[Rfam]
RNA: Vault RNA
RNA sequence: GCGCCGGCUUAGCUCAGCGGUUACUUCUCGAAACAAACCUUUCCCCUCACCGGGAUUACGAACCACGGGCGCUGUCCGGCGUUUUG
Numbered sequence: 001g002c003g004c005c006g007g008c009u010u011a012g013c014u015c016a017g018c019g020g021u022u023a024c025u026u027c028u029c030g031a032a033a034c035a036a037a038c039c040u041u042u043c044c045c046c047u048c049a050c051c052g053g054g055a056u057u058a059c060g061a062a063c064c065a066c067g068g069g070c071g072c073u074g075u076c077c078g079g080c081g082u083u084u085u086g
Base pairs, nucleotide, nucleotide: 002081003080004079005078006077007076012070013069014068015067017066019064020063025062026061027060